[Rfam]
Rfam assigns this 116-nucleotide RNA from Hevea brasiliensis to the family "Small nucleolar RNA Z278". Rfam links the family to the GO terms RNA processing and nucleolus. It scores 40 bits against the family's covariance model. Rfam's curators write: snoZ278 is a C/D box small nucleolar RNA. Its methylation guide targets have not been reported. The base pairs follow the family's consensus structure, which was predicted with PFOLD.
RNA sequence: GGCAAGGAUGAGAUAUCCAUGUAGUUGAUGUGUGGUUGGCCCCAAGUCCCUGUUCAAGGGAGAACAUACUUGGGGUCACUACAUUAAUUUAUGAAAUUACUGGAAAUCUCUGAGUC
Numbered sequence: 001g002g003c004a005a006g007g008a009u010g011a012g013a014u015a016u017c018c019a020u021g022u023a024g025u026u027g028a029u030g031u032g033u034g035g036u037u038g039g040c041c042c043c044a045a046g047u048c049c050c051u052g053u054u055c056a057a058g059g060g061a062g063a064a065c066a067u068a069c070u071u072g073g074g075g076u077c078a079c080u081a082c083a084u085u086a087a088u089u090u091a092u093g094a095a096a097u098u099a100c101u102g103g104a105a106a107u108c109u110c111u112g113a114g115u116c
Base pairs, nucleotide, nucleotide: 001116002115003114048060049059050058051057
The literature on the family includes a 2003 paper in Nucleic Acids Res by Chen et al., "The high diversity of snoRNAs in plants: identification and comparative study of 120 snoRNA genes from Oryza sativa".